[Rfam]
RNA: ybhL leader
Organism: Mesorhizobium zhangyense
RNA sequence: CAGGCAUGCUGGAGUCCCGCCAGCGGCGCCUGGGUUCAUUUGAACCUGACACCCGACGGGGCAGAA
Number, nucleotide and partner (000 for none) at each position: 001c000002a000003g000004g000005c000006a000007u000008g000009c000010u000011g000012g000013a000014g062015u061016c060017c059018c058019g057020c000021c000022a000023g000024c000025g053026g052027c000028g000029c000030c000031u048032g047033g046034g045035u043036u000037c000038a000039u000040u000041u000042g000043a035044a000045c034046c033047u032048g031049a000050c000051a000052c026053c025054c000055g000056a000057c019058g018059g017060g016061g015062c014063a000064g000065a000066a000